[Rfam]
A member of the RNA family "terC RNA" from Devosia limi, 59 nucleotides long. The family's consensus secondary structure is taken from published work. The match comes from Rfam's covariance-model search (60 bits). Rfam classes the family as a cis-regulatory element. The organism belongs to Devosia limi, within Bacteria.
RNA sequence: CGGUAGCGCCGGGCCCCUCUGGCGAAAGCAAUCUGCUUUCGUGAUGUCGGAGCUACUCC
Numbered sequence: 001c002g003g004u005a006g007c008g009c010c011g012g013g014c015c016c017c018u019c020u021g022g023c024g025a026a027a028g029c030a031a032u033c034u035g036c037u038u039u040c041g042u043g044a045u046g047u048c049g050g051a052g053c054u055a056c057u058c059c
Stems, first nucleotide, its partner, number of pairs: 006053002009050004022042008